[Rfam]
RNA sequence: CCUGGGGGAGCGUUUUGUUCAUGUCAGCACAAAACGCUUCCUUGAGGGUACACUUUGUGUUAACGUGGACAAAACGCUCCCCCAGGG
Number, nucleotide and partner (000 for none) at each position: 001c086002c085003u084004g083005g082006g081007g080008g079009a078010g077011c076012g075013u074014u073015u072016u071017g070018u069019u068020c067021a066022u000023g064024u063025c000026a061027g060028c059029a058030c057031a056032a055033a054034a000035c000036g051037c000038u000039u000040c047041c046042u000043u000044g000045a000046g041047g040048g000049u000050a000051c036052a000053c000054u033055u032056u031057g030058u029059g028060u027061u026062a000063a024064c023065g000066u021067g020068g019069a018070c017071a016072a015073a014074a013075c012076g011077c010078u009079c008080c007081c006082c005083c004084a003085g002086g001087g000